Overview:
Guanidine-II riboswitch aptamer (mini-ykkC): a 49-nucleotide sequence from Wolinella succinogenes. Lineage of the source: Bacteria > Campylobacterota > Epsilonproteobacteria > Helicobacteraceae > Wolinella. The sequence is in the family's curated seed alignment. The family has 72 seed sequences and 1,589 matches in Rfam 15.1. Pairs were carried over by alignment from the consensus structure, which is taken from published work.

RNA sequence: CCCCUAGGACGACCUAGAGGGUGACUUCACCGAUGAUGGGACGACCCAA
Dot-bracket structure: ((.(((((....))))).))................((((....)))).
Numbered sequence: 001c002c003c004c005u006a007g008g009a010c011g012a013c014c015u016a017g018a019g020g021g022u023g024a025c026u027u028c029a030c031c032g033a034u035g036a037u038g039g040g041a042c043g044a045c046c047c048a049a
Stems, first nucleotide, its partner, number of pairs: 001020002004017005037048004